[Rfam]
RNA sequence: GUAUGGGGACGACCCCAUGCUGCGCCUAUCGACGGGGACGGCCCC
Numbered sequence: 001g002u003a004u005g006g007g008g009a010c011g012a013c014c015c016c017a018u019g020c021u022g023c024g025c026c027u028a029u030c031g032a033c034g035g036g037g038a039c040g041g042c043c044c045c
Stems, first nucleotide, its partner, number of pairs: 001020008034045004

The record is a 45-nucleotide RNA from Andreprevotia lacus, which matches "Guanidine-II riboswitch aptamer (mini-ykkC)" in Rfam.
It scores 45 bits against the family's covariance model.
The base pairs follow the family's consensus structure, which is taken from published work.
About the family: Simpler in structure and has fewer highly conserved nucleotide positions than the ykkC-yxkD leader. Despite this each of its two stem-loop structures directly bind free guanidine.
The organism belongs to Andreprevotia lacus, within Bacteria.
For this family Rfam cites "Identification of 22 candidate structured RNAs in bacteria using the CMfinder comparative genomics pipeline" (Weinberg et al., Nucleic Acids Res, 2007).